[Rfam]
This 61-nucleotide RNA sequence from Rattus norvegicus belongs to the Rfam family "mir-327 microRNA precursor family". Pairs were carried over by alignment from the consensus structure, which was predicted with RNAalifold. Its family is annotated with RISC complex and miRNA-mediated post-transcriptional gene silencing in the Gene Ontology. The literature on the family includes a 2004 paper in Proc Natl Acad Sci U S A by Kim et al., "Identification of many microRNAs that copurify with polyribosomes in mammalian neurons". Rfam's curators put it in the seed alignment. The source organism's lineage runs through Eukaryota, Gnathostomata, Sarcopterygii, Glires and Rattus.
RNA sequence: AUGCCCUCAUCCUUGAGGGGCAUGAGGGUAGUCAGUAGCCUGAUGUCCCUCUUGAUGGCAC
Numbered sequence: 001a002u003g004c005c006c007u008c009a010u011c012c013u014u015g016a017g018g019g020g021c022a023u024g025a026g027g028g029u030a031g032u033c034a035g036u037a038g039c040c041u042g043a044u045g046u047c048c049c050u051c052u053u054g055a056u057g058g059c060a061c
Stems, first nucleotide, its partner, number of pairs: 002060004007055003015051006025041003029037002